[Rfam]
RNA: Nitrogen stress-induced RNA 1
Organism: Thermocoleostomius sinensis
RNA sequence: UGGUAGAUGCACCCUGAUUCGAUACCCCUGGCUCACUAGUUGGGUCGGGGGAUUCUUUA
Numbered sequence: 001u002g003g004u005a006g007a008u009g010c011a012c013c014c015u016g017a018u019u020c021g022a023u024a025c026c027c028c029u030g031g032c033u034c035a036c037u038a039g040u041u042g043g044g045u046c047g048g049g050g051g052a053u054u055c056u057u058u059a
Stems, first nucleotide, its partner, number of pairs: 002013003025051011